[Rfam]
This 93-nucleotide sequence belongs to the Rfam family "Rhodo-rpoB RNA". By type it is a cis-regulatory element.
RNA sequence: CGAUCGGGAGGCCUUCGGUGGGACGAAGGCCAUGAAUGGAUCGGAACACGCCCUCUCGGAUGGAUGCGCGGCCGGGGCCCGACGGUCUGCGCG
Numbered sequence: 001c002g003a004u005c006g007g008g009a010g011g012c013c014u015u016c017g018g019u020g021g022g023a024c025g026a027a028g029g030c031c032a033u034g035a036a037u038g039g040a041u042c043g044g045a046a047c048a049c050g051c052c053c054u055c056u057c058g059g060a061u062g063g064a065u066g067c068g069c070g071g072c073c074g075g076g077g078c079c080c081g082a083c084g085g086u087c088u089g090c091g092c093g
Stems, first nucleotide, its partner, number of pairs: 001043005010031008065093005070087005